[Rfam]
Rfam assigns this 63-nucleotide sequence to the family "Streptococcus sRNA SpF59 (ldcC RNA)". The sequence is in the family's curated seed alignment. The literature on the family includes a 2012 paper in PLoS Pathog by Mann et al., "Control of virulence by small RNAs in Streptococcus pneumoniae".
RNA sequence: CGACCGCCCAUUCCCCGCGCGGGGACGGGCCAAGGCCAGACGGACAGCCGGGUCGAAUGCCGA
Numbered sequence: 001c002g003a004c005c006g007c008c009c010a011u012u013c014c015c016c017g018c019g020c021g022g023g024g025a026c027g028g029g030c031c032a033a034g035g036c037c038a039g040a041c042g043g044a045c046a047g048c049c050g051g052g053u054c055g056a057a058u059g060c061c062g063a
Stems, first nucleotide, its partner, number of pairs: 001055005006030004011025005